[Rfam]
RNA sequence: GUGUCUUUAUGAUGGUCUGUUUUUAAACUGUAAUGAAAACAGGCUUGAUCUCGUGACAU
Numbered sequence: 001g002u003g004u005c006u007u008u009a010u011g012a013u014g015g016u017c018u019g020u021u022u023u024u025a026a027a028c029u030g031u032a033a034u035g036a037a038a039a040c041a042g043g044c045u046u047g048a049u050c051u052c053g054u055g056a057c058a059u
Stems, first nucleotide, its partner, number of pairs: 001059005014045010028035001
A member of the RNA family "Selenocysteine insertion sequence 1" from Neogobius melanostomus, 59 nucleotides long. The organism belongs to Neogobius, within Eukaryota. The family's consensus secondary structure is taken from published work. For this family Rfam cites "A novel RNA structural motif in the selenocysteine insertion element of eukaryotic selenoprotein mRNAs" (Walczak et al., RNA, 1996). Rfam classes the family as a cis-regulatory element.